The record is an 83-nucleotide RNA from Parabacteroides johnsonii, which matches "Bacteroidetes FopS (family of paralogous sRNAs)" in Rfam.

[Rfam]
RNA sequence: GUGGUUUUUUCAUAAUAGUAUUAGAUUUAAGGUUAACAAAGUUGGUUAGGGGUUGUCGGGAUGACAAUCCUUAAUUUUUUAUA
Numbered sequence: 001g002u003g004g005u006u007u008u009u010u011c012a013u014a015a016u017a018g019u020a021u022u023a024g025a026u027u028u029a030a031g032g033u034u035a036a037c038a039a040a041g042u043u044g045g046u047u048a049g050g051g052g053u054u055g056u057c058g059g060g061a062u063g064a065c066a067a068u069c070c071u072u073a074a075u076u077u078u079u080u081a082u083a
Base pairs, nucleotide, nucleotide: 051069052068053067054066055065056064057063
From the family's description: The RNA-binding protein RbpB and BTncRNA_FopS sRNA are involved in the post-transcription regulation of polysaccharide utilisation loci (PUL). FopS sRNAs function as post-transcriptional repressors by binding to the vicinity of the start codon of the first mRNA of target PUL polycistrons, typically corresponding to the cognate SusC homolog, impeding translation of the respective glycan transporter. A search with the family's covariance model found it, with a score of 61 bits. The family has 12 seed sequences and 822 matches in Rfam 15.1. For this family Rfam cites "The global RNA-binding protein RbpB is a regulator of polysaccharide utilization in Bacteroides thetaiotaomicron" (Ruttiger et al., Nat Commun, 2025). Gene Ontology term of the family: sRNA-mediated gene silencing.